[Rfam]
Source information:
ZMP/ZTP riboswitch aptamer (pfl RNA motif): a 94-nucleotide RNA from Actinoplanes friuliensis. A search with the family's covariance model found it, with a score of 49 bits. Lineage of the source: Bacteria > Actinomycetota > Actinomycetes > Micromonosporaceae > Actinoplanes friuliensis. The base pairs follow the family's consensus structure, which is taken from published work.
RNA sequence: UCGGCGGGCCGUGACUGGCGCGUUCGGAUGGGCAAACCAUCGGGGAGCGGUCCCGUCCGUUCCGGACGACCUGCCGUGCGCCUGGGCCUCUUCA
Numbered sequence: 001u002c003g004g005c006g007g008g009c010c011g012u013g014a015c016u017g018g019c020g021c022g023u024u025c026g027g028a029u030g031g032g033c034a035a036a037c038c039a040u041c042g043g044g045g046a047g048c049g050g051u052c053c054c055g056u057c058c059g060u061u062c063c064g065g066a067c068g069a070c071c072u073g074c075c076g077u078g079c080g081c082c083u084g085g086g087c088c089u090c091u092u093c094a
Stems, first nucleotide, its partner, number of pairs: 003056001006053007015044002017082005028040004073087003